[Rfam]
RNA: Fluoride riboswitch aptamer (crcB RNA motif)
Organism: Caproiciproducens sp. NJN-50
RNA sequence: UGGCGAAUUGGUGAUGAGGCUCACCCUAAUGCAGUUUCUGCUGAUGGCUUCUACUUUAAG
Number, nucleotide and partner (000 for none) at each position: 001u000002g000003g000004c000005g000006a000007a000008u000009u000010g025011g024012u023013g022014a000015u000016g051017a050018g049019g048020c047021u046022c013023a012024c011025c010026c000027u000028a000029a000030u000031g041032c040033a039034g000035u000036u000037u000038c000039u033040g032041c031042u000043g000044a000045u000046g021047g020048c019049u018050u017051c016052u000053a000054c000055u000056u000057u000058a000059a000060g000